Record summary
This 89-nucleotide sequence from Sphingomicrobium lutaoense belongs to the Rfam family "Glycine riboswitch aptamer". Its family is annotated with glycine biosynthetic process in the Gene Ontology.
RNA sequence: CAGUCUGGAAAGCGUUCCGCAAAGGGACCGCCGAAGGGGUAUGCCCGGUUCUCACCCGGGAGAAGCUCUCAGGCCACAACGACAGACUG
Numbered sequence: 001c002a003g004u005c006u007g008g009a010a011a012g013c014g015u016u017c018c019g020c021a022a023a024g025g026g027a028c029c030g031c032c033g034a035a036g037g038g039g040u041a042u043g044c045c046c047g048g049u050u051c052u053c054a055c056c057c058g059g060g061a062g063a064a065g066c067u068c069u070c071a072g073g074c075c076a077c078a079a080c081g082a083c084a085g086a087c088u089g
Stems, first nucleotide, its partner, number of pairs: 001089007014028004030074003033070002037068003044060005